[Rfam]
mir-172 microRNA precursor family: a 187-nucleotide sequence from Prunus armeniaca. The family's consensus secondary structure was predicted with PFOLD. Taxonomically the source falls in Prunus (Eukaryota, Tracheophyta, Mesangiospermae, Pentapetalae). On this family, see Jones-Rhoades and Bartel, Mol Cell 2004: "Computational Identification of Plant MicroRNAs and Their Targets, Including a Stress-Induced miRNA". Gene Ontology terms of the family: RISC complex and miRNA-mediated post-transcriptional gene silencing. The match comes from Rfam's covariance-model search (80 bits).

RNA sequence: GUAUUCGCGGGUGCGGCAUCAUCAAGAUUCACAUACUUUAGUGAGGGGUCUACCUUUAUCGAUCGAGUUAAUUGGUAGUACUAACACCACCAAUUGAUUUUAGUACUUGGAACUUCCUUUAGUACUCGAAAGGUAGUUCCUUUGAACUUUGAAGUGGGAAUCUUGAUGAUGCUGCAUCAGCAAGUAC
Number, nucleotide and partner (000 for none) at each position: 001g000002u000003a000004u000005u000006c000007g000008c000009g000010g178011g177012u176013g175014c174015g173016g172017c171018a170019u169020c168021a167022u166023c165024a164025a163026g162027a161028u160029u159030c158031a000032c156033a155034u000035a000036c000037u000038u000039u000040a000041g000042u000043g000044a000045g000046g000047g000048g000049u000050c000051u000052a000053c000054c000055u000056u000057u000058a000059u000060c000061g000062a000063u000064c000065g000066a000067g000068u000069u000070a000071a000072u000073u000074g000075g000076u000077a000078g000079u000080a000081c000082u000083a000084a000085c000086a000087c000088c000089a000090c000091c000092a000093a000094u000095u000096g000097a000098u000099u000100u000101u000102a000103g000104u000105a000106c000107u000108u000109g000110g000111a000112a000113c000114u000115u000116c000117c000118u000119u000120u000121a000122g000123u000124a000125c000126u000127c000128g000129a000130a000131a000132g000133g000134u000135a000136g000137u000138u000139c000140c000141u000142u000143u000144g000145a000146a000147c000148u000149u000150u000151g000152a000153a000154g000155u033156g032157g000158g030159a029160a028161u027162c026163u025164u024165g023166a022167u021168g020169a019170u018171g017172c016173u015174g014175c013176a012177u011178c010179a000180g000181c000182a000183a000184g000185u000186a000187c000